The family of this 128-nucleotide sequence from Actinokineospora bangkokensis is "SAM riboswitch aptamer (S box leader)". Lineage of the source: Bacteria > Bacillati > Actinomycetes > Pseudonocardiales > Actinokineospora.

[Rfam]
RNA sequence: CGCUCAUCCAGAGGGGCAGAGGGAACGGCCCGUUGAAGCCCCGGCAACCGGCACCCGACCAGCACCGCGACGCGCGGCUGGGAGGGACACGGUGCCAAUUCCGACCCGCUGCGCGGGAGAGAUGAGGA
Number, nucleotide and partner (000 for none) at each position: 001c000002g000003c126004u125005c124006a123007u122008c121009c000010a000011g000012a000013g042014g041015g040016g039017c038018a000019g000020a000021g031022g030023g029024a000025a000026c103027g102028g101029c023030c022031c021032g000033u000034u000035g000036a000037a000038g017039c016040c015041c014042c013043g096044g095045c094046a093047a000048c092049c091050g088051g000052c086053a000054c000055c000056c000057g000058a000059c000060c000061a000062g000063c000064a000065c000066c000067g000068c000069g000070a000071c000072g000073c000074g000075c000076g000077g000078c000079u000080g000081g000082g000083a000084g000085g000086g052087a000088c050089a000090c000091g049092g048093u046094g045095c044096c043097a000098a000099u000100u120101c028102c027103g026104a000105c117106c116107c115108g114109c113110u000111g000112c000113g109114c108115g107116g106117g105118a000119g000120a100121g008122a007123u006124g005125a004126g003127g000128a000

Rfam describes the family as follows. The SAM riboswitch is found upstream of a number of genes which code for proteins involved in methionine or cysteine biosynthesis in Gram-positive bacteria.